[Rfam]
RNA: U4 spliceosomal RNA
Organism: Otolemur garnettii
RNA sequence: AGCUUUGUGCAGUAGCAGCCAAUGAGGUUUAUUGGAGGUGCAAUUAUUGCAAAUUGAAAACUUUUCCCAAUACCCUGCCAUGACGACUUGAAAUAUAGUCAGCAUUAGCAAUUUUUGACAGUCUCUACAGAGA
Numbered sequence: 001a002g003c004u005u006u007g008u009g010c011a012g013u014a015g016c017a018g019c020c021a022a023u024g025a026g027g028u029u030u031a032u033u034g035g036a037g038g039u040g041c042a043a044u045u046a047u048u049g050c051a052a053a054u055u056g057a058a059a060a061c062u063u064u065u066c067c068c069a070a071u072a073c074c075c076u077g078c079c080a081u082g083a084c085g086a087c088u089u090g091a092a093a094u095a096u097a098g099u100c101a102g103c104a105u106u107a108g109c110a111a112u113u114u115u116u117g118a119c120a121g122u123c124u125c126u127a128c129a130g131a132g133a
Stems, first nucleotide, its partner, number of pairs: 012044002015041002018039003027033001077109002080105003085100004122133004